[Rfam]
RNA sequence: CAGCACACACCAACCAGCCCCUUCUGUGUGGUUGAGUACACGCCGGUGGCCAAAGUGGGGUGCGAGAUCU
Numbered sequence: 001c002a003g004c005a006c007a008c009a010c011c012a013a014c015c016a017g018c019c020c021c022u023u024c025u026g027u028g029u030g031g032u033u034g035a036g037u038a039c040a041c042g043c044c045g046g047u048g049g050c051c052a053a054a055g056u057g058g059g060g061u062g063c064g065a066g067a068u069c070u
Base pairs, nucleotide, nucleotide: 003063004062005061006060008057009056010055017050018049019048020046021045026041027040028039029038
RNA: Trypanosomatid snoRNA TB11Cs5H1
Organism: Trypanosoma theileri